[Rfam]
RNA sequence: GGGCUGGCCUUAGCUCAGCGGUUCCUUCGAUCGCAUGUCAACAACUUCUCUGUGUAGUCAGAGCGGUUCGAUACCCACCCGCGGGCGCUCUCCAGCCCUUUU
Numbered sequence: 001g002g003g004c005u006g007g008c009c010u011u012a013g014c015u016c017a018g019c020g021g022u023u024c025c026u027u028c029g030a031u032c033g034c035a036u037g038u039c040a041a042c043a044a045c046u047u048c049u050c051u052g053u054g055u056a057g058u059c060a061g062a063g064c065g066g067u068u069c070g071a072u073a074c075c076c077a078c079c080c081g082c083g084g085g086c087g088c089u090c091u092c093c094a095g096c097c098c099u100u101u102u
Stems, first nucleotide, its partner, number of pairs: 002097006013086004018082004027071004
Rfam assigns this 102-nucleotide sequence from Microcebus murinus to the family "Vault RNA". The base pairs follow the family's consensus structure, which is taken from published work. Rfam's curators write: This family of RNAs are found as part of the enigmatic vault ribonucleoprotein complex.